[Rfam]
RNA: Group II catalytic intron D1-D4-6
RNA sequence: UAAGUCCCUGCCGGGUAAGGUUUAACUCACCACCCGUAUCGAGUGUUGCGCCUAUGGCGGAGUCUGUUUUUUUUAUAGGCGAACAAGAUAGGUGAAGCGUACACAGAGAAUUAGUUAGGCCAUAGGGGAUGCGUGUCCCUGAAGAGCUGGUAUCGCUUCGAUAAGCACAAUCUGACUGACGAGGUUUGUAACGCCACCGAAGUCCAUGCAAAGCAGCCGUUAAAGUUAGGCUGUGGCGAGUCAGCGGAGUUAUCAAGCC
Numbered sequence: 001u002a003a004g005u006c007c008c009u010g011c012c013g014g015g016u017a018a019g020g021u022u023u024a025a026c027u028c029a030c031c032a033c034c035c036g037u038a039u040c041g042a043g044u045g046u047u048g049c050g051c052c053u054a055u056g057g058c059g060g061a062g063u064c065u066g067u068u069u070u071u072u073u074u075a076u077a078g079g080c081g082a083a084c085a086a087g088a089u090a091g092g093u094g095a096a097g098c099g100u101a102c103a104c105a106g107a108g109a110a111u112u113a114g115u116u117a118g119g120c121c122a123u124a125g126g127g128g129a130u131g132c133g134u135g136u137c138c139c140u141g142a143a144g145a146g147c148u149g150g151u152a153u154c155g156c157u158u159c160g161a162u163a164a165g166c167a168c169a170a171u172c173u174g175a176c177u178g179a180c181g182a183g184g185u186u187u188g189u190a191a192c193g194c195c196a197c198c199g200a201a202g203u204c205c206a207u208g209c210a211a212a213g214c215a216g217c218c219g220u221u222a223a224a225g226u227u228a229g230g231c232u233g234u235g236g237c238g239a240g241u242c243a244g245c246g247g248a249g250u251u252a253u254c255a256a257g258c259c
Stems, first nucleotide, its partner, number of pairs: 012036004019031003023228004039107002043104004047099002049094007059084001152253001155250006172244006178204003183198003209238001213234006